mir-33 microRNA precursor family: a 67-nucleotide sequence from Candidula unifasciata. It scores 65 bits against the family's covariance model. Taxonomically the source falls in Candidula (Eukaryota, Metazoa, Protostomia, Eupulmonata). Its family is annotated with gene silencing by miRNA and RISC complex in the Gene Ontology. On this family, see Li et al., BMC Genomics 2009: "Direct sequencing and expression analysis of a large number of miRNAs in Aedes aegypti and a multi-species survey of novel mosquito miRNAs".
RNA sequence: CAUUGGUGCAUUGUAGUUGCAUUGCAUGAUAAGAUGAAGUUGCAGUGCCUCUGCAGUGCAAUCAUUG
Numbered sequence: 001c002a003u004u005g006g007u008g009c010a011u012u013g014u015a016g017u018u019g020c021a022u023u024g025c026a027u028g029a030u031a032a033g034a035u036g037a038a039g040u041u042g043c044a045g046u047g048c049c050u051c052u053g054c055a056g057u058g059c060a061a062u063c064a065u066u067g
Stems, first nucleotide, its partner, number of pairs: 001067002004064001006063001007060010019048001021046006